[Rfam]
ZMP/ZTP riboswitch aptamer (pfl RNA motif): an 85-nucleotide sequence from Hominibacterium faecale. Pairs were carried over by alignment from the consensus structure, which is taken from published work. Rfam links the family to the GO terms one-carbon metabolic process and regulation of purine nucleotide biosynthetic process. Rfam 15.1 lists 3,295 matches to the family in 2,545 species. The source organism's lineage runs through Bacteria, Bacillati, Clostridia, Anaerovoracaceae and Hominibacterium.
RNA sequence: UAUUUGUUAUACGACUGACGGAACAAGUGGAAUGGACCACGUGGAGUAUAAUGUAUAUGAUGAGCCGACCGUCUGGGCAUUUGUC
Numbered sequence: 001u002a003u004u005u006g007u008u009a010u011a012c013g014a015c016u017g018a019c020g021g022a023a024c025a026a027g028u029g030g031a032a033u034g035g036a037c038c039a040c041g042u043g044g045a046g047u048a049u050a051a052u053g054u055a056u057a058u059g060a061u062g063a064g065c066c067g068a069c070c071g072u073c074u075g076g077g078c079a080u081u082u083g084u085c
Base pairs, nucleotide, nucleotide: 003055005053006052007051008050009049010048011047012046015043017073018072019071020070021069027040028039029038030037062080064078065077066076